The record is an 83-nucleotide RNA sequence from Peptoclostridium acidaminophilum, which matches "c-di-GMP-I riboswitch aptamer" in Rfam. On this family, see Weinberg et al., Nucleic Acids Res 2007: "Identification of 22 candidate structured RNAs in bacteria using the CMfinder comparative genomics pipeline". The organism belongs to Peptoclostridium acidaminophilum, within Bacteria.
RNA sequence: UCUCCGAAAUGGCAAAGCUCUCGAAAGGGAGGGACGCAAAGCCACGGGCCUAAGGCGCAAGCUAGGGUGGCAGGGCUGCCGAA
Numbered sequence: 001u002c003u004c005c006g007a008a009a010u011g012g013c014a015a016a017g018c019u020c021u022c023g024a025a026a027g028g029g030a031g032g033g034a035c036g037c038a039a040a041g042c043c044a045c046g047g048g049c050c051u052a053a054g055g056c057g058c059a060a061g062c063u064a065g066g067g068u069g070g071c072a073g074g075g076c077u078g079c080c081g082a083a
Base pairs, nucleotide, nucleotide: 012037013036018031019030020029021028022027040077041076042075043074045073047071048068049067050066055062056061